Overview: Rfam assigns this 92-nucleotide RNA sequence from Orthohepacivirus hominis to the family "Hepatitis C virus stem-loop SL8670". The family's RNA type in Rfam is cis-regulatory element. The family's consensus secondary structure was predicted with RNAfold.

[Rfam]
RNA sequence: AGAGUGAGGGUGUUCAGGAGGACGAGGCCAACCUGAGAGCCUUUACGGAGGCUAUGACCAGGUAUUCGGCCCCCCCUGGGGACCCCCCCCGA
Numbered sequence: 001a002g003a004g005u006g007a008g009g010g011u012g013u014u015c016a017g018g019a020g021g022a023c024g025a026g027g028c029c030a031a032c033c034u035g036a037g038a039g040c041c042u043u044u045a046c047g048g049a050g051g052c053u054a055u056g057a058c059c060a061g062g063u064a065u066u067c068g069g070c071c072c073c074c075c076c077u078g079g080g081g082a083c084c085c086c087c088c089c090c091g092a
Stems, first nucleotide, its partner, number of pairs: 006087001008085003013080003017076002020073002026071003030066001031063005038053006

For this family Rfam cites "Functionally conserved architecture of hepatitis C virus RNA genomes" (Mauger et al., Proc Natl Acad Sci U S A, 2015).